[Rfam]
RNA: Glycine riboswitch aptamer
RNA sequence: CGACUCUGGAGAGUCGGGACGCCGGACGUCCUGCGCCGAAGGUGUAAGCCGGCUCGGCCGGUGAAACUCUCAGGCACCGAUGACAGAGCGGGGAGA
Numbered sequence: 001c002g003a004c005u006c007u008g009g010a011g012a013g014u015c016g017g018g019a020c021g022c023c024g025g026a027c028g029u030c031c032u033g034c035g036c037c038g039a040a041g042g043u044g045u046a047a048g049c050c051g052g053c054u055c056g057g058c059c060g061g062u063g064a065a066a067c068u069c070u071c072a073g074g075c076a077c078c079g080a081u082g083a084c085a086g087a088g089c090g091g092g093g094a095g096a
Stems, first nucleotide, its partner, number of pairs: 001091001004088005015033006035075003038071002042069001044067001048062004